Shown here is a 70-nucleotide RNA from Trypanosoma brucei, a member of the family "Trypanosomatid snoRNA TB10Cs5H3".
Lineage of the source: Eukaryota > Euglenozoa > Kinetoplastea > Trypanosomatidae > Trypanosoma brucei gambiense.
Pairs were carried over by alignment from the consensus structure, which was predicted with WAR.
For this family Rfam cites "Psiscan: a computational approach to identify H/ACA-like and AGA-like non-coding RNA in trypanosomatid genomes" (Myslyuk et al., BMC Bioinformatics, 2008).
It is annotated as an H/ACA-box small nucleolar RNA.
RNA sequence: UAACGGUAACUCUCUGGAAACUCAUCCCCUCUUUUCUGUAGAUGUGUUUCCUCAUCGGUUCCCGGAGAAA
Numbered sequence: 001u002a003a004c005g006g007u008a009a010c011u012c013u014c015u016g017g018a019a020a021c022u023c024a025u026c027c028c029c030u031c032u033u034u035u036c037u038g039u040a041g042a043u044g045u046g047u048u049u050c051c052u053c054a055u056c057g058g059u060u061c062c063c064g065g066a067g068a069a070a
Stems, first nucleotide, its partner, number of pairs: 004064003008060003016051003025040001
Dot-bracket structure: ...(((.(((.....(((......(..............)........)))......))).)))......